Rfam assigns this 111-nucleotide RNA sequence from Mycobacteroides abscessus to the family "Enterococcus sRNA 66".
The family's RNA type in Rfam is antisense RNA.
RNA sequence: AAAGAGAGGUAUGCGGGUACAUACCUCUCCUUUUAUACCAACACCAGUUAUAAGAACUGGUGGCUUACUGAGUUAAGUUUUGAAUCUUAACCGUUCGGCCUACGAAGCUUG
Numbered sequence: 001a002a003a004g005a006g007a008g009g010u011a012u013g014c015g016g017g018u019a020c021a022u023a024c025c026u027c028u029c030c031u032u033u034u035a036u037a038c039c040a041a042c043a044c045c046a047g048u049u050a051u052a053a054g055a056a057c058u059g060g061u062g063g064c065u066u067a068c069u070g071a072g073u074u075a076a077g078u079u080u081u082g083a084a085u086c087u088u089a090a091c092c093g094u095u096c097g098g099c100c101u102a103c104g105a106a107g108c109u110u111g
Base pairs, nucleotide, nucleotide: 003031004029005028006027007026008025010023011022012021013020034067035066038063039062044060045059046058047057048056049055070100072099073098074097075095077091078090079089